[Rfam]
A member of the RNA family "TD-2 RNA" from Treponema maltophilum, 94 nucleotides long. The match comes from Rfam's covariance-model search (60 bits). NCBI's taxonomy places the organism under Bacteria, Spirochaetota, Spirochaetia, Treponemataceae, Treponema maltophilum.

RNA sequence: UCCGACAGGAUGUCGGUGUAAGCUAUAGGGAAGCGAGUUUUUGUAAAAAACUCGUCGUCCAACAAGGUACAAGGACGUACCUUGUUGGACACUU
Dot-bracket structure: .(((((.....))))).................(((((((((...)))))))))..((((((((((((((......))))))))))))))....